The family of this 100-nucleotide RNA sequence from Paenibacillus protaetiae is "Purine riboswitch aptamer". Gene Ontology term of the family: purine nucleobase biosynthetic process. It scores 62 bits against the family's covariance model.
RNA sequence: UGCGGUAUUAUCGUUACUGUUCGUAUAACCUCGAUAAUACGGAUUGAGGGUCUCUACAAGGAACCAUGAAUUCCUGGCUACGAACGGGAUGCUGCCGCAU
Dot-bracket structure: .................((((((((...(((((((.......))))))).........(((((.......)))))...))))))))..............